Rfam assigns this 76-nucleotide sequence from Equus caballus to the family "mir-8932 microRNA precursor family". Lineage of the source: Eukaryota > Bilateria > Chordata > Equidae > Equus. It is one of the family's seed sequences. Pairs were carried over by alignment from the consensus structure, which was predicted with RNAalifold.

RNA sequence: GGUGGCUUGCCCGCGUGCCGGGGGCUCUGGCGCCAGUGGCACGUGUGCUGGGAGCGCCUGAGCCGUGGUGGCCGCA
Numbered sequence: 001g002g003u004g005g006c007u008u009g010c011c012c013g014c015g016u017g018c019c020g021g022g023g024g025c026u027c028u029g030g031c032g033c034c035a036g037u038g039g040c041a042c043g044u045g046u047g048c049u050g051g052g053a054g055c056g057c058c059u060g061a062g063c064c065g066u067g068g069u070g071g072c073c074g075c076a
Stems, first nucleotide, its partner, number of pairs: 002075006011068005017063002019060004024055005030048004034043001